[Rfam]
RNA sequence: UGGAAGUAGAGACCAGUAACUACUCAAAUAAACGGGUAUAACUAAAAAACCUUAAGAGUAAGGUGUAA
Numbered sequence: 001u002g003g004a005a006g007u008a009g010a011g012a013c014c015a016g017u018a019a020c021u022a023c024u025c026a027a028a029u030a031a032a033c034g035g036g037u038a039u040a041a042c043u044a045a046a047a048a049a050c051c052u053u054a055a056g057a058g059u060a061a062g063g064u065g066u067a068a
Base pairs, nucleotide, nucleotide: 006023007022008021009020035051036050037049042062043061
Dot-bracket structure: .....((((..........))))...........(((....[[.....))).........]]......

The record is a 68-nucleotide RNA sequence, which matches "DUF805 RNA" in Rfam. The family's consensus secondary structure is taken from published work. The family is grouped with related families in Rfam's "DUF805 clan".